[Rfam]
RNA sequence: AUGAGAAUAAGGGGAGAGACUAUAACUUAGUAUAGCGCCGAAGGAGCAAACAACUGUGAAUCUCUCAGGCAAAAGAACUCUUAUUUGACG
Number, nucleotide and partner (000 for none) at each position: 001a000002u000003g000004a000005g000006a085007a084008u083009a082010a081011g080012g079013g078014g000015a000016g000017a000018g000019a000020c035021u034022a033023u032024a000025a000026c000027u000028u000029a000030g000031u000032a023033u022034a021035g020036c000037g070038c069039c068040g066041a065042a000043g000044g064045a063046g062047c000048a000049a000050a057051c056052a000053a000054c000055u000056g051057u050058g000059a000060a000061u000062c046063u045064c044065u041066c040067a000068g039069g038070c037071a000072a000073a000074a000075g000076a000077a000078c013079u012080c011081u010082u009083a008084u007085u006086u000087g000088a000089c000090g000